[Rfam]
RNA sequence: GUCCGUUCAUCCUUCGGGACGCAUGACACCAUAAGCAUGGAACGGGGCUUAUGG
Numbered sequence: 001g002u003c004c005g006u007u008c009a010u011c012c013u014u015c016g017g018g019a020c021g022c023a024u025g026a027c028a029c030c031a032u033a034a035g036c037a038u039g040g041a042a043c044g045g046g047g048c049u050u051a052u053g054g
Stems, first nucleotide, its partner, number of pairs: 004044005010019003029054004034050001035048002
Record summary: A member of the RNA family "Glutamine-II riboswitch aptamer", 54 nucleotides long. Gene Ontology term of the family: glutamine binding. Pairs were carried over by alignment from the consensus structure, which is taken from published work. Rfam's curators put it in the seed alignment.